[Rfam]
Nucleotides: 588
Base pairs, nucleotide, nucleotide: 001584002583003582004581005580006579007578008577010576011575012574014571015570022405023404024403025402027401028400029397030396031395032394033393035202036201037200038199042194043193044192045191046190047189048188051154052153053152054151055150056149057148058147059146060145062143063142064141065140066139068137078136079135080134081133082132085119086118087117094113095112096111097110098109099108100107101106158182159181160180162179164177165176166175167174205217206216207215208214218240219239220238221237222236223235241386243343244342249301250300251299252298253297254296255281256280258276259275260274261273262272263271282291283290306329307328308327309326312323313322314321331340332339333338354380355379356378357377358376359375360374362373363372414455415454416453418452419449420448421447422446423445424444425443429439430438466541467539468538469537470536471533472530473529474528475527476526479504480503482499483498484497485496486495487494506520507519508518509517510516547565548564549563550562551560552559553558
Number, partner (000 for none) and nucleotide at each position: 001584c002583c003582c004581a005580u006579a007578g008577u009000u010576a011575g012574a013000c014571g015570g016000a017000a018000a019000g020000a021000c022405c023404c024403c025402g026000u027401g028400a029397a030396c031395c032394u033393u034000c035202a036201c037200c038199g039000u040000a041000g042194c043193u044192u045191a046190c047189u048188a049000u050000u051154g052153g053152a054151a055150c056149u057148u058147g059146g060145u061000u062143u063142a064141c065140c066139a067000u068137g069000u070000g071000u072000a073000g074000u075000a076000u077000a078136g079135g080134u081133g082132g083000g084000a085119g086118a087117c088000a089000g090000a091000g092000a093000a094113g095112c096111u097110u098109g099108g100107c101106c102000g103000u104000c105000a106101g107100g108099u109098u110097a111096g112095g113094c114000g115000g116000a117087g118086u119085c120000a121000a122000c123000a124000g125000u126000g127000a128000a129000a130000u131000a132082c133081c134080a135079c136078c137068c138000u139066u140065g141064g142063u143062a144000c145060g146059u147058c148057a149056g150055g151054u152053u153052u154051c155000u156000a157000a158182c159181c160180u161000u162179u163000g164177g165176c166175c167174g168000u169000g170000g171000a172000u173000c174167c175166g176165g177164c178000a179162a180160a181159g182158g183000g184000a185000c186000c187000g188048u189047g190046g191045u192044a193043g194042g195000u196000g197000g198000g199038c200037g201036g202035u203000u204000u205217g206216a207215c208214u209000g210000g211000g212000g213000c214208g215207g216206u217205c218240g219239c220238c221237u222236c223235c224000u225000a226000a227000a228000a229000g230000g231000u232000a233000a234000c235223g236222g237221a238220g239219g240218u241386g242000c243343g244342c245000g246000a247000a248000g249301g250300u251299c252298u253297c254296c255281u256280c257000a258276c259275a260274c261273c262272g263271g264000u265000u266000g267000g268000a269000a270000a271263u272262c273261g274260g275259u276258g277000c278000g279000c280256g281255a282291g283290u284000g285000u286000a287000a288000a289000g290283g291282c292000a293000c294000a295000a296254g297253g298252a299251g300250g301249c302000u303000u304000a305000a306329c307328u308327g309326c310000g311000a312323g313322a314321c315000c316000g317000a318000c319000a320000g321314g322313u323312c324000g325000a326309g327308c328307a329306g330000a331340u332339a333338c334000g335000a336000a337000a338333g339332u340331a341000g342244g343243u344000c345000u346000u347000a348000g349000u350000g351000a352000u353000c354380u355379g356378g357377c358376g359375g360374u361000a362373g363372c364000g365000u366000g367000u368000g369000g370000a371000a372363g373362c374360g375359c376358c377357g378356u379355c380354a381000c382000u383000u384000a385000a386241c387000g388000g389000a390000u391000a392000a393033a394032a395031g396030g397029u398000a399000c400028u401027c402025c403024g404023g405022g406000g407000a408000u409000a410000a411000c412000a413000g414455g415454c416453u417000g418452a419449u420448u421447u422446u423445c424444c425443c426000c427000a428000a429439g430438a431000g432000u433000u434000c435000a436000c437000a438430u439429c440000g441000a442000c443425g444424g445423g446422a447421a448420a449419g450000u451000u452418u453416g454415g455414c456000a457000c458000c459000u460000c461000g462000a463000u464000g465000u466541c467539g468538g469537c470536u471533c472530a473529u474528c475527g476526c477000a478000u479504c480503c481000u482499g483498g484497g485496g486495c487494u488000g489000a490000a491000g492000c493000a494487g495486g496485u497484c498483c499482c500000a501000a502000g503480g504479g505000u506520u507519u508518g509517g510516c511000u512000g513000u514000u515000c516510g517509c518508c519507a520506a521000u522000u523000a524000a525000a526476g527475c528474g529473g530472u531000a532000c533471g534000u535000g536470a537469g538468c539467u540000g541466g542000g543000u544000u545000c546000a547565g548564a549563a550562c551560g552559u553558c554000g555000c556000g557000a558553g559552a560551c561000a562550g563549u564548u565547c566000g567000g568000u569000c570015c571014c572000u573000a574012u575011c576010u577008g578007c579006u580005a581004u582003g583002g584001g585000c586000g587000u588000u